RNA: mir-488 microRNA precursor family
Nucleotides: 079
Stems, first nucleotide, its partner, number of pairs: 001077001003075002006072003011067002014064003018061006025055002028052008
Number, partner (000 for none) and nucleotide at each position: 001077a002000a003075u004074c005000c006072u007071c008070u009000c010000u011067c012066c013000c014064a015063g016062a017000u018061a019060a020059u021058g022057g023056c024000a025055c026054u027000c028052u029051c030050a031049a032048a033047c034046a035045a036000g037000u038000u039000u040000c041000u042000a043000c044000a045035u046034u047033g048032u049031u050030u051029g052028a053000a054026a055025g056023g057022c058021u059020g060019u061018u062016u063015c064014u065000u066012g067011g068000u069000c070008a071007g072006a073000a074004g075003a076000c077001u078000c079000u